Small nucleolar RNA Z13/snr52: a 101-nucleotide RNA sequence from Penicillium ucsense. A search with the family's covariance model found it, with a score of 93 bits. Its family is annotated with RNA processing and nucleolus in the Gene Ontology. NCBI's taxonomy places the organism under Eukaryota, leotiomyceta, Eurotiales, Aspergillaceae, Penicillium.
RNA sequence: CUUGAUCACAUGACGAAACAUACCCGGAUGUAAACUCACAGACCCUUCGGAAUGCGCAAAACCAUGUCGAUAUUUCCGUUGCCUUCCUUCUGACUGAUCAU
Numbered sequence: 001c002u003u004g005a006u007c008a009c010a011u012g013a014c015g016a017a018a019c020a021u022a023c024c025c026g027g028a029u030g031u032a033a034a035c036u037c038a039c040a041g042a043c044c045c046u047u048c049g050g051a052a053u054g055c056g057c058a059a060a061a062c063c064a065u066g067u068c069g070a071u072a073u074u075u076c077c078g079u080u081g082c083c084u085u086c087c088u089u090c091u092g093a094c095u096g097a098u099c100a101u
Base pairs, nucleotide, nucleotide: 003100004099005098025078026077027076028075